[Rfam]
RNA sequence: UGCCUAAACUCGUUGGUUCCCAACGGGCAUGGCACGAAAUCCAUAGCAAUAGAGACGGUCUUCCGACCAGCACUCAUUGCUAUGGUAUGCGCUUGAAAGGGUGCAUGGCUAAUUCCGAAAGGAAAAGGCC
Numbered sequence: 001u002g003c004c005u006a007a008a009c010u011c012g013u014u015g016g017u018u019c020c021c022a023a024c025g026g027g028c029a030u031g032g033c034a035c036g037a038a039a040u041c042c043a044u045a046g047c048a049a050u051a052g053a054g055a056c057g058g059u060c061u062u063c064c065g066a067c068c069a070g071c072a073c074u075c076a077u078u079g080c081u082a083u084g085g086u087a088u089g090c091g092c093u094u095g096a097a098a099g100g101g102u103g104c105a106u107g108g109c110u111a112a113u114u115c116c117g118a119a120a121g122g123a124a125a126a127g128g129c130c
Stems, first nucleotide, its partner, number of pairs: 001034004009027007041085010054073001057068003087106008107130004
RNA: LOOT RNA